RNA sequence: AAAAGCCUGGGAUGUUCGAAAGAUCCUAUAAUUUUGAACCUACAUUUGACGAAAGGGAGUUCGGAGUUUGAUAACCAUAUGUCAGGCCUCAAGAUAAUUCCGCCACAUGCCUUAAGGUGUGUGCAACGGCAGGGGAAGACAGCGGUUGUCAACAGGACACCCACCUAGCAGGGGCUAGGUGUCGAAAUAUAGGAGAAACGGCAUUUUGGGUAUCAA
Dot-bracket structure: ..(.(((((((((((.((............((((((((((..............(((.((((.(....(((((((.....((....((((.........................................))))...))....))))))).).)))).)))...............))).)))))))..........))))))))))))).)...
A member of the RNA family "6S / SsrS RNA" from Acetivibrio clariflavus, 216 nucleotides long. It scores 68 bits against the family's covariance model. About the family: E. coli 6S RNA was the first non coding RNA to be sequenced, but its function was unknown until recently. It consists of 184 nucleotides that fold into an extended hairpin structure with a large single-stranded internal bulge. The 6S RNA specifically associates with RNA polymerase holoenzyme containing the sigma70 specificity factor. The literature on the family includes a 2000 paper in Cell by Wassarman and Storz, "6S RNA regulates E. coli RNA polymerase activity". The family's RNA type in Rfam is non-coding RNA gene. The source organism's lineage runs through Bacteria, Bacillati, Bacillota, Acetivibrio and Acetivibrio clariflavus.